The family of this 94-nucleotide RNA from Myotis davidii is "mir-802 microRNA precursor family".
The family has 9 seed sequences and 133 matches in Rfam 15.1.
Pairs were carried over by alignment from the consensus structure, which was predicted with RNAalifold.
The organism belongs to Myotis, within Eukaryota.
RNA sequence: CGUCUAUUACUUGCAGUCAGUAACAAAGAUUCGUCCUUGUGUCCAUCAAGCAGCAAGGGGGAUCUUUGUCACUUGGUGUAAUUAAUAGCUGCUC
Numbered sequence: 001c002g003u004c005u006a007u008u009a010c011u012u013g014c015a016g017u018c019a020g021u022a023a024c025a026a027a028g029a030u031u032c033g034u035c036c037u038u039g040u041g042u043c044c045a046u047c048a049a050g051c052a053g054c055a056a057g058g059g060g061g062a063u064c065u066u067u068g069u070c071a072c073u074u075g076g077u078g079u080a081a082u083u084a085a086u087a088g089c090u091g092c093u094c
Stems, first nucleotide, its partner, number of pairs: 004088006011081005017075001019073003023069010034059007041051002